[Rfam]
RNA: Antisense RNA which regulates isiA expression
Organism: Lobomonas monstruosa
RNA sequence: GGUAACCGAAGAUAACAGCAGCGUUUGUAGUUGGGUUAGUAAUAACACGAACGUCACCACCACCUGGAGCCCAAGUGUCAUAAACACCACCGAAGUACAUUGCUUUCCAAACUAGUAACCAUGCACCUAAACCUAACAUAAUAAGGUGGUAACCAAGAAUGUUAGUCAUUUUGUUUUUGUCUUUCCA
Numbered sequence: 001g002g003u004a005a006c007c008g009a010a011g012a013u014a015a016c017a018g019c020a021g022c023g024u025u026u027g028u029a030g031u032u033g034g035g036u037u038a039g040u041a042a043u044a045a046c047a048c049g050a051a052c053g054u055c056a057c058c059a060c061c062a063c064c065u066g067g068a069g070c071c072c073a074a075g076u077g078u079c080a081u082a083a084a085c086a087c088c089a090c091c092g093a094a095g096u097a098c099a100u101u102g103c104u105u106u107c108c109a110a111a112c113u114a115g116u117a118a119c120c121a122u123g124c125a126c127c128u129a130a131a132c133c134u135a136a137c138a139u140a141a142u143a144a145g146g147u148g149g150u151a152a153c154c155a156a157g158a159a160u161g162u163u164a165g166u167c168a169u170u171u172u173g174u175u176u177u178u179g180u181c182u183u184u185c186c187a
Base pairs, nucleotide, nucleotide: 145184146183148181149180150179155176156175157174